RNA sequence: UUUUUUGCAGGAACCAACCAUGUGGACAAAUGAGAAAAUACCUUUUGUUUACAGAAGGCAGCAAUCCUAAAUAAACAUGGAGGGCUUUGACAUAAGAUAGCUGACUACGUUAGAUCAUUCCCCUUGUUACGUG
Dot-bracket structure: ....((((............(((((((....(((.......)))..)))))))....))))..................((((...(.(((.((...........)).))).....)....))))........
Numbered sequence: 001u002u003u004u005u006u007g008c009a010g011g012a013a014c015c016a017a018c019c020a021u022g023u024g025g026a027c028a029a030a031u032g033a034g035a036a037a038a039u040a041c042c043u044u045u046u047g048u049u050u051a052c053a054g055a056a057g058g059c060a061g062c063a064a065u066c067c068u069a070a071a072u073a074a075a076c077a078u079g080g081a082g083g084g085c086u087u088u089g090a091c092a093u094a095a096g097a098u099a100g101c102u103g104a105c106u107a108c109g110u111u112a113g114a115u116c117a118u119u120c121c122c123c124u125u126g127u128u129a130c131g132u133g
Stems, first nucleotide, its partner, number of pairs: 005061004021053007032044003080125004087117001089111003093107002